[Rfam]
RNA sequence: CGGGGACACCGCAGCCUCCCCGUCAGAUGGCCCCCCAUCCAAGCGCUGC
Numbered sequence: 001c002g003g004g005g006a007c008a009c010c011g012c013a014g015c016c017u018c019c020c021c022g023u024c025a026g027a028u029g030g031c032c033c034c035c036c037a038u039c040c041a042a043g044c045g046c047u048g049c
Stems, first nucleotide, its partner, number of pairs: 001022006011049005026039005
RNA: chrB-b RNA